This 102-nucleotide RNA from Desulfonispora thiosulfatigenes belongs to the Rfam family "Purine riboswitch aptamer".
The literature on the family includes a 2003 paper in Cell by Mandal et al., "Riboswitches Control Fundamental Biochemical Pathways in Bacillus subtilis and Other Bacteria".
[Rfam]
RNA sequence: UCGUUCGUAUAUUAUGCUGCCUAUAUAAGUUUGAUAAUAUGGAUCAAGCGUCUCUACUUAGUAACCGUAAAUUACUAAACUAUGGGUAGUUUAUAUUAUUGC
Numbered sequence: 001u002c003g004u005u006c007g008u009a010u011a012u013u014a015u016g017c018u019g020c021c022u023a024u025a026u027a028a029g030u031u032u033g034a035u036a037a038u039a040u041g042g043a044u045c046a047a048g049c050g051u052c053u054c055u056a057c058u059u060a061g062u063a064a065c066c067g068u069a070a071a072u073u074a075c076u077a078a079a080c081u082a083u084g085g086g087u088a089g090u091u092u093a094u095a096u097u098a099u100u101g102c
Base pairs, nucleotide, nucleotide: 018088019087020086021085022084023083024082025081029049030048031047032046033045034044035043058078059077060076061075062074063073064072
Its family is annotated with purine nucleobase biosynthetic process in the Gene Ontology.